This 360-nucleotide RNA sequence from Thinocorus orbignyianus belongs to the Rfam family "Nuclear RNase P". Ribonuclease P (RNase P) is a ubiquitous endoribonuclease, found in archaea, bacteria and eukarya as well as chloroplasts and mitochondria. The family's RNA type in Rfam is ribozyme.
[Rfam]
RNA sequence: UCCGGGGGAAGCUCACCGCCGAGGCCACGCACGGGGUGUGCGUCACCCACGCCCCGCCUCGGGGAAGGUCUGAGGGAAGGGCCGCCCGCGGCUCUAGCAGAGCCCCGCCCGCGAGUGGGGCGGGUGAGCCACCAGCAAGGGGGGGCGCCGCGGUAUUCGCUGUUUGCGUGGGCCGAUCCGUGGGCAGGAGAAGCCGAGCAGGCGGCGCCGUGGGAGUGGGUCUCGUUACUCCCCCACCGCCGCCCCGGCGGAUGCUCGUGGCCCCGCGGCGCUUUGAGACAGACUCACGGCCGGCGACUGAGUCCAAUGGGUGAGGUGGGGCAGCGCCCCACAACCCAAUUCAGACUACUCUCCCCCGGA
Numbered sequence: 001u002c003c004g005g006g007g008g009a010a011g012c013u014c015a016c017c018g019c020c021g022a023g024g025c026c027a028c029g030c031a032c033g034g035g036g037u038g039u040g041c042g043u044c045a046c047c048c049a050c051g052c053c054c055c056g057c058c059u060c061g062g063g064g065a066a067g068g069u070c071u072g073a074g075g076g077a078a079g080g081g082c083c084g085c086c087c088g089c090g091g092c093u094c095u096a097g098c099a100g101a102g103c104c105c106c107g108c109c110c111g112c113g114a115g116u117g118g119g120g121c122g123g124g125u126g127a128g129c130c131a132c133c134a135g136c137a138a139g140g141g142g143g144g145g146c147g148c149c150g151c152g153g154u155a156u157u158c159g160c161u162g163u164u165u166g167c168g169u170g171g172g173c174c175g176a177u178c179c180g181u182g183g184g185c186a187g188g189a190g191a192a193g194c195c196g197a198g199c200a201g202g203c204g205g206c207g208c209c210g211u212g213g214g215a216g217u218g219g220g221u222c223u224c225g226u227u228a229c230u231c232c233c234c235c236a237c238c239g240c241c242g243c244c245c246c247g248g249c250g251g252a253u254g255c256u257c258g259u260g261g262c263c264c265c266g267c268g269g270c271g272c273u274u275u276g277a278g279a280c281a282g283a284c285u286c287a288c289g290g291c292c293g294g295c296g297a298c299u300g301a302g303u304c305c306a307a308u309g310g311g312u313g314a315g316g317u318g319g320g321g322c323a324g325c326g327c328c329c330c331a332c333a334a335c336c337c338a339a340u341u342c343a344g345a346c347u348a349c350u351c352u353c354c355c356c357c358g359g360a
Base pairs, nucleotide, nucleotide: 001360002359003358004357007354008353009352012315013314014313015312016311017310020061021060022059023058024057034048035047036046037045038044070344071343072342073341074340080292081291082290083289090104091103092102093101094100105123106122107121108120109119110118124288125287126286127285128284130282144273145272146271147270148269149268150267151266152265153264316332317331318330319329320328321327322326
Lineage of the source: Eukaryota > Metazoa > Bilateria > Aves > Thinocorus. It scores 160 bits against the family's covariance model.